[Rfam]
RNA: L13-Bacteroidia ribosomal protein leader
RNA sequence: AAGACUGUAAGAGUCUUAAAAUCUGUGUGUUAAUAGCAUUUUCAUUGGCCUGGAAUGCGGUUAGUGAAUC
Numbered sequence: 001a002a003g004a005c006u007g008u009a010a011g012a013g014u015c016u017u018a019a020a021a022u023c024u025g026u027g028u029g030u031u032a033a034u035a036g037c038a039u040u041u042u043c044a045u046u047g048g049c050c051u052g053g054a055a056u057g058c059g060g061u062u063a064g065u066g067a068a069u070c
Stems, first nucleotide, its partner, number of pairs: 001017006030064005036058004041054004